[Rfam]
RNA sequence: ACGUACCGCAAGUACGUUCCGGUUGCUGCGCUCCGUCCGCCUAGCCUGACACCUGCUCGCUACGCCCUUGAGGGCAGGGUGUAAGCC
Numbered sequence: 001a002c003g004u005a006c007c008g009c010a011a012g013u014a015c016g017u018u019c020c021g022g023u024u025g026c027u028g029c030g031c032u033c034c035g036u037c038c039g040c041c042u043a044g045c046c047u048g049a050c051a052c053c054u055g056c057u058c059g060c061u062a063c064g065c066c067c068u069u070g071a072g073g074g075c076a077g078g079g080u081g082u083a084a085g086c087c
Stems, first nucleotide, its partner, number of pairs: 002016005020035003046085002049082006
This 87-nucleotide RNA from Simplicispira sp. 125 belongs to the Rfam family "Xanthomonas sRNA sX9". It scores 49 bits against the family's covariance model. It is annotated as a small RNA.